[Rfam]
RNA sequence: AUUAACAUAUAUUAUUGCCCUAAGACAGUGAGUCCGUAAGGUUAAAGGUUAAACGCUCGCCGAGGAAAGAAAUUAAGAUUAUUAUGUAAUUUCAAGUCCUUCUGUCUUAAUGGCAGAAGGGCUUUUUUCUUUACUUU
Numbered sequence: 001a002u003u004a005a006c007a008u009a010u011a012u013u014a015u016u017g018c019c020c021u022a023a024g025a026c027a028g029u030g031a032g033u034c035c036g037u038a039a040g041g042u043u044a045a046a047g048g049u050u051a052a053a054c055g056c057u058c059g060c061c062g063a064g065g066a067a068a069g070a071a072a073u074u075a076a077g078a079u080u081a082u083u084a085u086g087u088a089a090u091u092u093c094a095a096g097u098c099c100u101u102c103u104g105u106c107u108u109a110a111u112g113g114c115a116g117a118a119g120g121g122c123u124u125u126u127u128u129c130u131u132u133a134c135u136u137u
Base pairs, nucleotide, nucleotide: 028060029059030058031057032056033055034041035040096122097121098120099119100118101117102116103115104114105113
RNA: Ribosomal protein L10 leader